Description:
Shown here is a 124-nucleotide sequence from Vitis vinifera, a member of the family "Small nucleolar RNA snoR74". Its family is annotated with nucleolus and RNA processing in the Gene Ontology. The source organism's lineage runs through Eukaryota, Embryophyta, Magnoliopsida, eudicotyledons and Vitis. The family has 9 seed sequences and 1,404 matches in Rfam 15.1.
RNA sequence: AAAAAAGUAGGGGCCUGUUGCCUUUUGUGAAUGGGUCUUUUGUAAACUUCAACAAAAUUAGUUGUUGGUUGAAUCUCUUAGAGUUUUGUCUAUUGUUAAAGGUAUAGUAAGCUAUGAUCUAUAG
Numbered sequence: 001a002a003a004a005a006a007g008u009a010g011g012g013g014c015c016u017g018u019u020g021c022c023u024u025u026u027g028u029g030a031a032u033g034g035g036u037c038u039u040u041u042g043u044a045a046a047c048u049u050c051a052a053c054a055a056a057a058u059u060a061g062u063u064g065u066u067g068g069u070u071g072a073a074u075c076u077c078u079u080a081g082a083g084u085u086u087u088g089u090c091u092a093u094u095g096u097u098a099a100a101g102g103u104a105u106a107g108u109a110a111g112c113u114a115u116g117a118u119c120u121a122u123a124g
Stems, first nucleotide, its partner, number of pairs: 005049003011038002014035004060113004070106002073103004